[Rfam]
RNA sequence: CAAUAAAAGUAUUCUUUUUCACUUUCUUUUUUACACCUCAGAUCCGGAGGCGGUGUUAGCGUGUAAUGAUGACAGUGAAAAACACCAAGCCUCCCAAGCGGGAGGCUUUUUCGUC
Numbered sequence: 001c002a003a004u005a006a007a008a009g010u011a012u013u014c015u016u017u018u019u020c021a022c023u024u025u026c027u028u029u030u031u032u033a034c035a036c037c038u039c040a041g042a043u044c045c046g047g048a049g050g051c052g053g054u055g056u057u058a059g060c061g062u063g064u065a066a067u068g069a070u071g072a073c074a075g076u077g078a079a080a081a082a083c084a085c086c087a088a089g090c091c092u093c094c095c096a097a098g099c100g101g102g103a104g105g106c107u108u109u110u111u112c113g114u115c
Stems, first nucleotide, its partner, number of pairs: 016081008025072002028069002031066004037049003050060002053057001087108009